Rfam assigns this 70-nucleotide RNA sequence from Apaloderma vittatum to the family "Small nucleolar RNA SNORD99". Its Rfam clan is "SNORD58 clan". The organism belongs to Apaloderma, within Eukaryota. The family's RNA type in Rfam is C/D-box small nucleolar RNA. Its family is annotated with RNA processing and nucleolus in the Gene Ontology. Pairs were carried over by alignment from the consensus structure, which was predicted with RNAalifold.
RNA sequence: CCUGGCCCGUGAUGACUCCGUUUUUGGAGACGGUCGGAUGAAUCCUGCGGAUAUGGGGCUGAGGCCAGGC
Numbered sequence: 001c002c003u004g005g006c007c008c009g010u011g012a013u014g015a016c017u018c019c020g021u022u023u024u025u026g027g028a029g030a031c032g033g034u035c036g037g038a039u040g041a042a043u044c045c046u047g048c049g050g051a052u053a054u055g056g057g058g059c060u061g062a063g064g065c066c067a068g069g070c
Stems, first nucleotide, its partner, number of pairs: 001069005
For this family Rfam cites "RNomics: an experimental approach that identifies 201 candidates for novel, small, non-messenger RNAs in mouse" (Huttenhofer et al., EMBO J, 2001). It scores 64 bits against the family's covariance model.